[Rfam]
RNA sequence: AUUAAAAGCAUUAUUGAAUGCAGCGUUGGUGAAACGACAUUUGUAGAUGAUGAAACCAUCGGAAAAGAACGAACGAAGAUAUCAUCAACGCUGCACUCAAUGAGGUUUUUU
Numbered sequence: 001a002u003u004a005a006a007a008g009c010a011u012u013a014u015u016g017a018a019u020g021c022a023g024c025g026u027u028g029g030u031g032a033a034a035c036g037a038c039a040u041u042u043g044u045a046g047a048u049g050a051u052g053a054a055a056c057c058a059u060c061g062g063a064a065a066a067g068a069a070c071g072a073a074c075g076a077a078g079a080u081a082u083c084a085u086c087a088a089c090g091c092u093g094c095a096c097u098c099a100a101u102g103a104g105g106u107u108u109u110u111u
Base pairs, nucleotide, nucleotide: 006108007107008106009105011103013101014100015099016098017097019095020094021093022092023091024090025089026088027087028086030084031083032082
Notes: A member of the RNA family "MIR397 microRNA precursor family", 111 nucleotides long. Rfam 15.1 lists 496 matches to the family in 218 species. A search with the family's covariance model found it, with a score of 61 bits. The base pairs follow the family's consensus structure, which was predicted with WAR.